[Rfam]
RNA sequence: GGAACCUUUAAAUCCAGUCCCGUGAGGCUGGCAAGGGCACGGAUACGAAGAGACGGCGGGAAAAGGGCGAACCAACCCUUUUGCCUGUCAUCGGCCUGUGGCUUCUUGUCGCCUGACAAGAAGCCUUUUUUU
Numbered sequence: 001g002g003a004a005c006c007u008u009u010a011a012a013u014c015c016a017g018u019c020c021c022g023u024g025a026g027g028c029u030g031g032c033a034a035g036g037g038c039a040c041g042g043a044u045a046c047g048a049a050g051a052g053a054c055g056g057c058g059g060g061a062a063a064a065g066g067g068c069g070a071a072c073c074a075a076c077c078c079u080u081u082u083g084c085c086u087g088u089c090a091u092c093g094g095c096c097u098g099u100g101g102c103u104u105c106u107u108g109u110c111g112c113c114u115g116a117c118a119a120g121a122a123g124c125c126u127u128u129u130u131u132u
Stems, first nucleotide, its partner, number of pairs: 005036004014031006055089006062082006098127001100125011

Rfam assigns this 132-nucleotide RNA from Brevibacillus sp. WF146 to the family "PyrR binding site". Rfam links the family to the GO terms pyrimidine nucleobase biosynthetic process and pyrimidine nucleobase transport. The match comes from Rfam's covariance-model search (60 bits). Taxonomically the source falls in Brevibacillus (Bacteria, Bacillati, Bacillota, Paenibacillaceae). For this family Rfam cites "Molecular recognition of pyr mRNA by the Bacillus subtilis attenuation regulatory protein PyrR" (Bonner et al., Nucleic Acids Res, 2001). The family's RNA type in Rfam is cis-regulatory element.